[Rfam]
Shown here is an 82-nucleotide sequence from Oryza rufipogon, a member of the family "MIR815 microRNA precursor family".
The family's consensus secondary structure was predicted with WAR.
The match comes from Rfam's covariance-model search (73 bits).
The family has 3 seed sequences and 12 matches in Rfam 15.1.
A reference for the family is Luo et al. (2006), "Rice embryogenic calli express a unique set of microRNAs, suggesting regulatory roles of microRNAs in plant post-embryogenic development", FEBS Lett.
RNA sequence: CUUCCCAAUCUCCUCUAUCUCCUCUUCUCAAACACAGCCUAAGGGAGUGUUUGAAGAGAAGGGGAUUGAGGAGAUUGGGAAG
Numbered sequence: 001c002u003u004c005c006c007a008a009u010c011u012c013c014u015c016u017a018u019c020u021c022c023u024c025u026u027c028u029c030a031a032a033c034a035c036a037g038c039c040u041a042a043g044g045g046a047g048u049g050u051u052u053g054a055a056g057a058g059a060a061g062g063g064g065a066u067u068g069a070g071g072a073g074a075u076u077g078g079g080a081a082g
Stems, first nucleotide, its partner, number of pairs: 001082012014069002017066002021062003025058004030052005038044001